The record is a 132-nucleotide RNA from Streptomyces zinciresistens, which matches "Streptomyces-metH RNA" in Rfam. The family's RNA type in Rfam is small RNA.
RNA sequence: CCGUCCCGCGUCGUGGACCCCCUGACCAUUCCCGCGUGGUCCCGGCUACCCUGGCGGCGUGCGCCCGCCGUGGGAAGAGUCCACCAGGGGCGCAAAGCCGACAGCCGUCGCACUCCAGGGAGCCCUUACAUG
Numbered sequence: 001c002c003g004u005c006c007c008g009c010g011u012c013g014u015g016g017a018c019c020c021c022c023u024g025a026c027c028a029u030u031c032c033c034g035c036g037u038g039g040u041c042c043c044g045g046c047u048a049c050c051c052u053g054g055c056g057g058c059g060u061g062c063g064c065c066c067g068c069c070g071u072g073g074g075a076a077g078a079g080u081c082c083a084c085c086a087g088g089g090g091c092g093c094a095a096a097g098c099c100g101a102c103a104g105c106c107g108u109c110g111c112a113c114u115c116c117a118g119g120g121a122g123c124c125c126u127u128a129c130a131u132g
Stems, first nucleotide, its partner, number of pairs: 060094004066090001068088002097111002100109003